[Rfam]
RNA sequence: GUACUUUAAUGAACAGUGUCUUAUGAUGAAGCUUCAUAGGGCAGAUUCUGAGUUGAGAAAUAAAAUUUCUCUCCACUGAUCCUCUCUAUAUGCCAUCUGAAGACACUAUAGAUUUC
Numbered sequence: 001g002u003a004c005u006u007u008a009a010u011g012a013a014c015a016g017u018g019u020c021u022u023a024u025g026a027u028g029a030a031g032c033u034u035c036a037u038a039g040g041g042c043a044g045a046u047u048c049u050g051a052g053u054u055g056a057g058a059a060a061u062a063a064a065a066u067u068u069c070u071c072u073c074c075a076c077u078g079a080u081c082c083u084c085u086c087u088a089u090a091u092g093c094c095a096u097c098u099g100a101a102g103a104c105a106c107u108a109u110a111g112a113u114u115u116c
Base pairs, nucleotide, nucleotide: 013109015107016106017105018104019103020102021101031096035092036091037090039085040084041083044080047079048078050076052074055071056070057069058068059067
This 116-nucleotide sequence from Tichodroma muraria belongs to the Rfam family "Small nucleolar RNA SNORD90". Rfam 15.1 lists 545 matches to the family in 524 species. A search with the family's covariance model found it, with a score of 55 bits. For this family Rfam cites "RNomics: an experimental approach that identifies 201 candidates for novel, small, non-messenger RNAs in mouse" (Huttenhofer et al., EMBO J, 2001). Rfam's curators write: snoRNA HBII-295 belongs to the family of C/D snoRNAs. It is the human orthologue of the mouse MBII-295 and has no identified RNA target. Rfam classes the family as a C/D-box small nucleolar RNA. Taxonomically the source falls in Tichodroma (Eukaryota, Metazoa, Archosauria, Telluraves).